[Rfam]
Shown here is an 85-nucleotide sequence from Streptomyces sp. Ru72, a member of the family "Streptomyces RNA 6106". The family's RNA type in Rfam is small RNA.
RNA sequence: ACGCCGCUCAGACGGCGUCCGCGCUCCUUGAACGGGGCCGGCAGGCGGGGGUGGUGCCGAGUCGGCGCAGCACCACCCCCGCCGC
Numbered sequence: 001a002c003g004c005c006g007c008u009c010a011g012a013c014g015g016c017g018u019c020c021g022c023g024c025u026c027c028u029u030g031a032a033c034g035g036g037g038c039c040g041g042c043a044g045g046c047g048g049g050g051g052u053g054g055u056g057c058c059g060a061g062u063c064g065g066c067g068c069a070g071c072a073c074c075a076c077c078c079c080c081g082c083c084g085c
Base pairs, nucleotide, nucleotide: 001018002017003016004015005014006013022040023039026036027035028034045082046081047080048079049078050077051076052075053074054073055072056071057070059068061066

Identified by deep sequencing of transcriptome at the end of exponential growth phase.
The base pairs follow the family's consensus structure.